RNA sequence: AUCGAGGUGUGGGGCGAGGAUCCGGCUGGCGGUAGAUGGUCGCCGAGCCAACCGGGGAGUCAGGGGCGAAACCGACACACCUUCCC
Numbered sequence: 001a002u003c004g005a006g007g008u009g010u011g012g013g014g015c016g017a018g019g020a021u022c023c024g025g026c027u028g029g030c031g032g033u034a035g036a037u038g039g040u041c042g043c044c045g046a047g048c049c050a051a052c053c054g055g056g057g058a059g060u061c062a063g064g065g066g067c068g069a070a071a072c073c074g075a076c077a078c079a080c081c082u083u084c085c086c
Stems, first nucleotide, its partner, number of pairs: 004083008013061003022055004027050003038073002040069005
A member of the RNA family "c-di-GMP-II-GAG riboswitch aptamer" from Egicoccus halophilus, 86 nucleotides long.
Clan: c-di-GMP_II riboswitch clan.
The family's consensus secondary structure is taken from published work.
For this family Rfam cites "Bioinformatic analysis of riboswitch structures uncovers variant classes with altered ligand specificity" (Weinberg et al., Proc Natl Acad Sci U S A, 2017).
NCBI's taxonomy places the organism under Bacteria, Actinomycetota, Egicoccales, Egicoccaceae, Egicoccus.
A search with the family's covariance model found it, with a score of 47 bits.